The family of this 179-nucleotide RNA from Parasedimentitalea huanghaiensis is "Ruegeria cis52 sRNA". The base pairs follow the family's consensus structure, which was predicted with RNAfold. The family has 2 seed sequences and 277 matches in Rfam 15.1. Rfam links the family to the GO term regulation of gene expression. Rfam classes the family as a small RNA. The match comes from Rfam's covariance-model search (112 bits).
RNA sequence: UACGCAGCGCGUGUUUCACGACGAUGUUGUAAAAGCUGACGCCUUUAAGCCGAGCGGUGCGGAUAUAUUGUGCCGUCAUGACUUCGGUCAUGCUGGCGCGGGUCAUACGGGCAAUAUAGCCCAUGCCGUAUAGCGCGAUGGUUAGCACCGGCAAAAAGAAGUUUUCGAAUGUUGGGUUA
Dot-bracket structure: ....((.(((((..((....(......((..........(.(...(.(.(((.(((((((((.....))))))))......((...........))).))).).)...).)..........)))...).)..))))).))......(((((((((((....))))....)))))).)..
Numbered sequence: 001u002a003c004g005c006a007g008c009g010c011g012u013g014u015u016u017c018a019c020g021a022c023g024a025u026g027u028u029g030u031a032a033a034a035g036c037u038g039a040c041g042c043c044u045u046u047a048a049g050c051c052g053a054g055c056g057g058u059g060c061g062g063a064u065a066u067a068u069u070g071u072g073c074c075g076u077c078a079u080g081a082c083u084u085c086g087g088u089c090a091u092g093c094u095g096g097c098g099c100g101g102g103u104c105a106u107a108c109g110g111g112c113a114a115u116a117u118a119g120c121c122c123a124u125g126c127c128g129u130a131u132a133g134c135g136c137g138a139u140g141g142u143u144a145g146c147a148c149c150g151g152c153a154a155a156a157a158g159a160a161g162u163u164u165u166c167g168a169a170u171g172u173u174g175g176g177u178u179a
Stems, first nucleotide, its partner, number of pairs: 005140002008137005015130001016128001021124001028123002040111001042109001046105001048103001050101003054097001055075008082096002147177001148175006154165004